[Rfam]
RNA sequence: GAGGCGGCGACGCCGAGUCCGCUUCUGUGCGGAGCCGGGGAACCAGCGCGAGGACGAUCCAGGCCAACGGAGCUUGGCGCCUCGCAGGGGUGAAUCGGCCUCUCCUCGCCAUGAUCGAGGGAGGUCGUAGGGCGACUUCCAUGCCCGAAUCCGUCAGCUAACCCGGUAGGCGGUAUGGAAGGAGAGA
Numbered sequence: 001g002a003g004g005c006g007g008c009g010a011c012g013c014c015g016a017g018u019c020c021g022c023u024u025c026u027g028u029g030c031g032g033a034g035c036c037g038g039g040g041a042a043c044c045a046g047c048g049c050g051a052g053g054a055c056g057a058u059c060c061a062g063g064c065c066a067a068c069g070g071a072g073c074u075u076g077g078c079g080c081c082u083c084g085c086a087g088g089g090g091u092g093a094a095u096c097g098g099c100c101u102c103u104c105c106u107c108g109c110c111a112u113g114a115u116c117g118a119g120g121g122a123g124g125u126c127g128u129a130g131g132g133c134g135a136c137u138u139c140c141a142u143g144c145c146c147g148a149a150u151c152c153g154u155c156a157g158c159u160a161a162c163c164c165g166g167u168a169g170g171c172g173g174u175a176u177g178g179a180a181g182g183a184g185a186g187a
Stems, first nucleotide, its partner, number of pairs: 011172004018033005034167006044087001088152003096127009130146004